[Rfam]
RNA sequence: GAGAAAUGAGGAUAUAUACUCUGUCUGACUGUUACAGUGAAGACUUCCGAUCCAACUCUGAUCUCACUCUGACU
Numbered sequence: 001g002a003g004a005a006a007u008g009a010g011g012a013u014a015u016a017u018a019c020u021c022u023g024u025c026u027g028a029c030u031g032u033u034a035c036a037g038u039g040a041a042g043a044c045u046u047c048c049g050a051u052c053c054a055a056c057u058c059u060g061a062u063c064u065c066a067c068u069c070u071g072a073c074u
Base pairs, nucleotide, nucleotide: 001065002064003063004062